A member of the RNA family "U1 spliceosomal RNA" from Crocuta crocuta, 164 nucleotides long.
A search with the family's covariance model found it, with a score of 71 bits.
Taxonomically the source falls in Crocuta (Eukaryota, Bilateria, Craniata, Sarcopterygii).
Rfam 15.1 lists 40,184 matches to the family in 1,499 species.
By type it is a spliceosomal small nuclear RNA.
RNA sequence: AUAUUUGCAUGGCAAGAAGGUUACCAUGAUGGCAAAGGUGGUUUUCUCAGUGUGAGGCCCAUCCAUUGCACUCUGGAUGUAGUGACCUCCGUGACUUCCCCAAAAGUGAAAAACUUGCCUGCACGAUUGGUGGUAUUAGGGGACUGCAAUCACACCUCCCCCUA
Numbered sequence: 001a002u003a004u005u006u007g008c009a010u011g012g013c014a015a016g017a018a019g020g021u022u023a024c025c026a027u028g029a030u031g032g033c034a035a036a037g038g039u040g041g042u043u044u045u046c047u048c049a050g051u052g053u054g055a056g057g058c059c060c061a062u063c064c065a066u067u068g069c070a071c072u073c074u075g076g077a078u079g080u081a082g083u084g085a086c087c088u089c090c091g092u093g094a095c096u097u098c099c100c101c102a103a104a105a106g107u108g109a110a111a112a113a114c115u116u117g118c119c120u121g122c123a124c125g126a127u128u129g130g131u132g133g134u135a136u137u138a139g140g141g142g143a144c145u146g147c148a149a150u151c152a153c154a155c156c157u158c159c160c161c162c163u164a
Stems, first nucleotide, its partner, number of pairs: 012122003016048002019045002023042005050089001052087001054086001056083001060079005092117003096111002100108001138163005146155001